A member of the RNA family "Early nodulin 40" from Gossypium harknessii, 253 nucleotides long. The match comes from Rfam's covariance-model search (60 bits). Gene Ontology term of the family: nodulation. NCBI's taxonomy places the organism under Eukaryota, Viridiplantae, Magnoliopsida, eudicotyledons, Gossypium. A reference for the family is Gultyaev and Roussis (2007), "Identification of conserved secondary structures and expansion segments in enod40 RNAs reveals new enod40 homologues in plants", Nucleic Acids Res.
[Rfam]
RNA sequence: AUGGUAUUAUUUUGGCAAAUGGGGUCUUCAUAAAGCACUGGGGAGGGGGGGAGUUUGGGUGGGAUUCCUCCAUUCUCACCCUCAGCCCACAAUUAAAACUGUUUGGCAGUGCUUAUUACCCAAUAAGCUUUGCAUGGAAGAGGAUCCAUCCUGCAGAGCACCUACCUAUCUGCGGAGGCUUUUUUGGCUAAUGCACUGGCAAAUCGGCAAGUCACGAAAAGGGCAAUCAACUCAUAGUAAUUAGUAUGAGUCU
Numbered sequence: 001a002u003g004g005u006a007u008u009a010u011u012u013u014g015g016c017a018a019a020u021g022g023g024g025u026c027u028u029c030a031u032a033a034a035g036c037a038c039u040g041g042g043g044a045g046g047g048g049g050g051g052a053g054u055u056u057g058g059g060u061g062g063g064a065u066u067c068c069u070c071c072a073u074u075c076u077c078a079c080c081c082u083c084a085g086c087c088c089a090c091a092a093u094u095a096a097a098a099c100u101g102u103u104u105g106g107c108a109g110u111g112c113u114u115a116u117u118a119c120c121c122a123a124u125a126a127g128c129u130u131u132g133c134a135u136g137g138a139a140g141a142g143g144a145u146c147c148a149u150c151c152u153g154c155a156g157a158g159c160a161c162c163u164a165c166c167u168a169u170c171u172g173c174g175g176a177g178g179c180u181u182u183u184u185u186g187g188c189u190a191a192u193g194c195a196c197u198g199g200c201a202a203a204u205c206g207g208c209a210a211g212u213c214a215c216g217a218a219a220a221g222g223g224c225a226a227u228c229a230a231c232u233c234a235u236a237g238u239a240a241u242u243a244g245u246a247u248g249a250g251u252c253u
Base pairs, nucleotide, nucleotide: 046088047087048086101204102203103202104201105200117191230251231250232249233248234247235246236245